[Rfam]
RNA sequence: UAGGAGGAACCGAAAAUCCUUUAAAGAGUAGGGA
Numbered sequence: 001u002a003g004g005a006g007g008a009a010c011c012g013a014a015a016a017u018c019c020u021u022u023a024a025a026g027a028g029u030a031g032g033g034a
Base pairs, nucleotide, nucleotide: 002020003019004018005017010032011031
This 34-nucleotide sequence belongs to the Rfam family "DUF805b RNA". Rfam classes the family as a cis-regulatory element. The sequence is in the family's curated seed alignment.